[Rfam]
RNA sequence: CCUCCCGUUCUUGGCGGGCCUCGGCGGUCCCGUGCCGAGGCCUGUGAUGUUACGGAGGCAGAGAAGCGACCGGCGCGAAGUCUUCGGUGCCGGCGGCCGCCUCCGCCGGUCCUACCCUCACACGCCGGGACAUGC
Numbered sequence: 001c002c003u004c005c006c007g008u009u010c011u012u013g014g015c016g017g018g019c020c021u022c023g024g025c026g027g028u029c030c031c032g033u034g035c036c037g038a039g040g041c042c043u044g045u046g047a048u049g050u051u052a053c054g055g056a057g058g059c060a061g062a063g064a065a066g067c068g069a070c071c072g073g074c075g076c077g078a079a080g081u082c083u084u085c086g087g088u089g090c091c092g093g094c095g096g097c098c099g100c101c102u103c104c105g106c107c108g109g110u111c112c113u114a115c116c117c118u119c120a121c122a123c124g125c126c127g128g129g130a131c132a133u134g135c
Stems, first nucleotide, its partner, number of pairs: 001058005015044006022037004071127005090109007
RNA: Small nucleolar RNA SNORA57